RNA sequence: CGGACCGUGAACGGCCACCGCGGGCUCUCCUGCACGAGCGCGUCGUCGCCCAGGUGCGCGCCGUCGGUGAUGACGCCGAGGAGCUGCGCGUCGCCGUACGCGCCGGUGGCCAGCCGUUCGAGCCGGCCGUGGGCGAUCACGUACGUGUCGGUGACCGGGGUGCCGGCCUCGGCGAUGACCUCCCCCGCCUGGAACUCGCGCGGCGCGAACGUCGAGGCGAUCGCCGCCAGCGCGUCGAGGUCGUCGAACCCGCGCAGCAGGGGCAGCUCCUGGAGCGUCUGCGGGACGAUGAGCACGUCGUCGGCCCCGUUGAGCACCACGCUCACCCGCCCGCGCCCGAUGUGGUGCGUCAGCCGGCGGUUGACCCGAUAGGUGCCGCCGCGCACGUCCACCCACGGCAGCCUGCGCAGGAGCCAGCGGGAGGUGAUGGCCUGCAUCUGCGGGCGCGUCUUGGUGGUGGUGGCCAGGUUGCGCGCGGCCCGGGUGUCCAGGCUCAACCGAGGCUCCGUCGA
Numbered sequence: 001c002g003g004a005c006c007g008u009g010a011a012c013g014g015c016c017a018c019c020g021c022g023g024g025c026u027c028u029c030c031u032g033c034a035c036g037a038g039c040g041c042g043u044c045g046u047c048g049c050c051c052a053g054g055u056g057c058g059c060g061c062c063g064u065c066g067g068u069g070a071u072g073a074c075g076c077c078g079a080g081g082a083g084c085u086g087c088g089c090g091u092c093g094c095c096g097u098a099c100g101c102g103c104c105g106g107u108g109g110c111c112a113g114c115c116g117u118u119c120g121a122g123c124c125g126g127c128c129g130u131g132g133g134c135g136a137u138c139a140c141g142u143a144c145g146u147g148u149c150g151g152u153g154a155c156c157g158g159g160g161u162g163c164c165g166g167c168c169u170c171g172g173c174g175a176u177g178a179c180c181u182c183c184c185c186c187g188c189c190u191g192g193a194a195c196u197c198g199c200g201c202g203g204c205g206c207g208a209a210c211g212u213c214g215a216g217g218c219g220a221u222c223g224c225c226g227c228c229a230g231c232g233c234g235u236c237g238a239g240g241u242c243g244u245c246g247a248a249c250c251c252g253c254g255c256a257g258c259a260g261g262g263g264c265a266g267c268u269c270c271u272g273g274a275g276c277g278u279c280u281g282c283g284g285g286a287c288g289a290u291g292a293g294c295a296c297g298u299c300g301u302c303g304g305c306c307c308c309g310u311u312g313a314g315c316a317c318c319a320c321g322c323u324c325a326c327c328c329g330c331c332c333g334c335g336c337c338c339g340a341u342g343u344g345g346u347g348c349g350u351c352a353g354c355c356g357g358c359g360g361u362u363g364a365c366c367c368g369a370u371a372g373g374u375g376c377c378g379c380c381g382c383g384c385a386c387g388u389c390c391a392c393c394c395a396c397g398g399c400a401g402c403c404u405g406c407g408c409a410g411g412a413g414c415c416a417g418c419g420g421g422a423g424g425u426g427a428u429g430g431c432c433u434g435c436a437u438c439u440g441c442g443g444g445c446g447c448g449u450c451u452u453g454g455u456g457g458u459g460g461u462g463g464c465c466a467g468g469u470u471g472c473g474c475g476c477g478g479c480c481c482g483g484g485u486g487u488c489c490a491g492g493c494u495c496a497a498c499c500g501a502g503g504c505u506c507c508g509u510c511g512a
Base pairs, nucleotide, nucleotide: 007392008391009390011388012387014384015383018329020327022324023323024322025321028316037311038310039309040308042306045305046304047303048302050300052298054233055232057230060227061226063224064223065116066115067114068113075103077102078101080099082097084096086094087093122222123217124216126213129210130209131206133204134203140198141197145195149192156187157186158185159184160183161178166173167172234296235295240290241289242288243287244286245285249283251281252280254278257276258275260271261270262269331345332344333343334342355381356380357379358378359377360376364374365373366372394434395433397431399429400428402426404424406421408419410418440479441478442476444474445473446472447471448470450468451467452466453465454464455463481511482510484506486504487502489500491498
Shown here is a 512-nucleotide RNA sequence from Nonomuraea jabiensis, a member of the family "Saccharopolyspora sRNA 350". On this family, see Liu et al., PLoS One 2013: "Prediction and characterization of small non-coding RNAs related to secondary metabolites in Saccharopolyspora erythraea". The family's consensus secondary structure was predicted with RNAfold.